[Rfam]
RNA sequence: UGUCUGUGAUGAUACCAAACAAGGCUUGUUUCUCUAAACAUUCGCAGUGGCCGCCUAAGAGCUUUCGCCUUCGCCAGGCUUGAGAGCUAGUGCUGUAUUUAUCCUUCCUUGGAUGUCUGAGACU
Numbered sequence: 001u002g003u004c005u006g007u008g009a010u011g012a013u014a015c016c017a018a019a020c021a022a023g024g025c026u027u028g029u030u031u032c033u034c035u036a037a038a039c040a041u042u043c044g045c046a047g048u049g050g051c052c053g054c055c056u057a058a059g060a061g062c063u064u065u066c067g068c069c070u071u072c073g074c075c076a077g078g079c080u081u082g083a084g085a086g087c088u089a090g091u092g093c094u095g096u097a098u099u100u101a102u103c104c105u106u107c108c109u110u111g112g113a114u115g116u117c118u119g120a121g122a123c124u
Stems, first nucleotide, its partner, number of pairs: 002123003061087006